[Rfam]
RNA sequence: GGUAUUGAUAGCCACACUUGCUGAGAGGCAAGGCCGGAAAGCUUCAGGUCUUUUGUAUAACUGCCAAAGAUGGCUGGGUUGCAUAU
Numbered sequence: 001g002g003u004a005u006u007g008a009u010a011g012c013c014a015c016a017c018u019u020g021c022u023g024a025g026a027g028g029c030a031a032g033g034c035c036g037g038a039a040a041g042c043u044u045c046a047g048g049u050c051u052u053u054u055g056u057a058u059a060a061c062u063g064c065c066a067a068a069g070a071u072g073g074c075u076g077g078g079u080u081g082c083a084u085a086u
Base pairs, nucleotide, nucleotide: 012037013036017032018031019030020029021028022027040080041079042078043077045076046075047074048071049070050069055065057062

c-di-GMP-I riboswitch aptamer: an 86-nucleotide RNA sequence from Methyloglobulus morosus. The source organism's lineage runs through Bacteria, Pseudomonadati, Methylococcales, Methyloglobulus and Methyloglobulus morosus. The family's consensus secondary structure is taken from published work. Its family is annotated with cyclic-di-GMP binding in the Gene Ontology.